[Rfam]
Background: The record is a 289-nucleotide RNA sequence from Catagonus wagneri, which matches "Metazoan signal recognition particle RNA" in Rfam.

RNA sequence: GCCGGGCAUGGUGGCACGAGCCUGUAGUCCCAGCUACUCGGGAGGCUGAGGCUGGAGGAUCGCUUGAGCCCAGGAGUUCUGGGCUGCAGUGCGCUAUGCCGAUCGGGUGUCCGCACUAAGUUCGGCAUCAAUAUGGUGACCCUCCGGGAGCAGGGGAGCACCAGGUUGCCUAAGGAGGGGUGAACCGGCCCAGGUCGGAAACGGAGCAGGUCAAAACUCCCGUGCUGAUCAGUAGUGGGAUCGCGCCACGGCACUCCAGCCUGGGCAACACAGCGAGACCCCGUCUCUU
Numbered sequence: 001g002c003c004g005g006g007c008a009u010g011g012u013g014g015c016a017c018g019a020g021c022c023u024g025u026a027g028u029c030c031c032a033g034c035u036a037c038u039c040g041g042g043a044g045g046c047u048g049a050g051g052c053u054g055g056a057g058g059a060u061c062g063c064u065u066g067a068g069c070c071c072a073g074g075a076g077u078u079c080u081g082g083g084c085u086g087c088a089g090u091g092c093g094c095u096a097u098g099c100c101g102a103u104c105g106g107g108u109g110u111c112c113g114c115a116c117u118a119a120g121u122u123c124g125g126c127a128u129c130a131a132u133a134u135g136g137u138g139a140c141c142c143u144c145c146g147g148g149a150g151c152a153g154g155g156g157a158g159c160a161c162c163a164g165g166u167u168g169c170c171u172a173a174g175g176a177g178g179g180g181u182g183a184a185c186c187g188g189c190c191c192a193g194g195u196c197g198g199a200a201a202c203g204g205a206g207c208a209g210g211u212c213a214a215a216a217c218u219c220c221c222g223u224g225c226u227g228a229u230c231a232g233u234a235g236u237g238g239g240a241u242c243g244c245g246c247c248a249c250g251g252c253a254c255u256c257c258a259g260c261c262u263g264g265g266c267a268a269c270a271c272a273g274c275g276a277g278a279c280c281c282c283g284u285c286u287c288u289u
Base pairs, nucleotide, nucleotide: 001046002045003044004023005022006021007020009018010017028043029042030041048287049286050285051284052283054281055280060276061275062274063273064272068266069265070264071263072262073261074260079259080258081257082256083255085253086252087251089249090248091247107246108245109244110243111239112238114237115236116235117234118233120230122228123227124226125225126224127223128222129168130167131166132165134163135162136161137160138159141156142155143154144153146151169175170174177220178219179218180217181216187212188211189210190209195204196203197202
Rfam describes the family as follows. The signal recognition particle (SRP) is a universally conserved ribonucleoprotein. It is involved in the co-translational targeting of proteins to membranes. The eukaryotic SRP consists of a 300-nucleotide 7S RNA and six proteins: SRPs 72, 68, 54, 19, 14, and 9. Archaeal SRP consists of a 7S RNA and homologues of the eukaryotic SRP19 and SRP54 proteins. Eukaryotic and archaeal 7S RNAs have very similar secondary structures, as represented by this family. Eight helical elements fold into the Alu and S domains, separated by a long linker region. The Alu domain is thought to mediate the peptide chain elongation retardation function of the SRP. The universally conserved helix which interacts with the SRP54 M domain mediates signal sequence recognition. In eukaryotes and archaea, the SRP19-helix 6 complex is thought to be involved in SRP assembly and stabilises helix 8 for SRP54 binding. The Signal Recognition Particle Database (SRPDB) provides compilations of SRP components, with phylogenetic data and structural illustrations. Many sequences below the threshold for this family are clearly closely related, but are most likely to be SRP RNA derived pseudogenes. The human genome in particular is known to contain a large amount of SRP RNA related sequence, including Alu repeats. While the threshold of this family is set high so as to minimise the number of hits to such regions, it is likely that some remain. A search with the family's covariance model found it, with a score of 234 bits. By type it is a non-coding RNA gene. The family has 91 seed sequences and 383,523 matches in Rfam 15.1.